[Rfam]
RNA sequence: GAUAGCGCCCAUUGGGUUAACUUUGGUUUUAAUGUUGUUUCCGGUGUAACUUUGGUCGGUGAGGCCGGACAUGGCGGGCCCACUUCGGUGGGCUUUCG
Numbered sequence: 001g002a003u004a005g006c007g008c009c010c011a012u013u014g015g016g017u018u019a020a021c022u023u024u025g026g027u028u029u030u031a032a033u034g035u036u037g038u039u040u041c042c043g044g045u046g047u048a049a050c051u052u053u054g055g056u057c058g059g060u061g062a063g064g065c066c067g068g069a070c071a072u073g074g075c076g077g078g079c080c081c082a083c084u085u086c087g088g089u090g091g092g093c094u095u096u097c098g
Stems, first nucleotide, its partner, number of pairs: 001028002040069006047062001076095008
Annotation:
isrB Hfq binding RNA: a 98-nucleotide sequence from Enterobacteria phage HK225. Rfam classes the family as a small RNA. Taxonomically the source falls in Caudoviricetes (Viruses, Duplodnaviria, Heunggongvirae, Uroviricota). A reference for the family is Padalon-Brauch et al. (2008), "Small RNAs encoded within genetic islands of Salmonella typhimurium show host-induced expression and role in virulence", Nucleic Acids Res.